[Rfam]
RNA sequence: CUCGCCCCCGAGCCGAGAGCCGCUGUUUCCUGCCACAGGGGCUUAGACGGCUGCGCACAGCAAGCGGGUCUCGGCGCCGUUGGGGGCCUGGCUGUGCCCCCCAACGGGCCCUCGGAGGCUCCACCUCC
Numbered sequence: 001c002u003c004g005c006c007c008c009c010g011a012g013c014c015g016a017g018a019g020c021c022g023c024u025g026u027u028u029c030c031u032g033c034c035a036c037a038g039g040g041g042c043u044u045a046g047a048c049g050g051c052u053g054c055g056c057a058c059a060g061c062a063a064g065c066g067g068g069u070c071u072c073g074g075c076g077c078c079g080u081u082g083g084g085g086g087c088c089u090g091g092c093u094g095u096g097c098c099c100c101c102c103a104a105c106g107g108g109c110c111c112u113c114g115g116a117g118g119c120u121c122c123a124c125c126u127c128c
Stems, first nucleotide, its partner, number of pairs: 003055003008050002018043004023038004066121007078106009088096001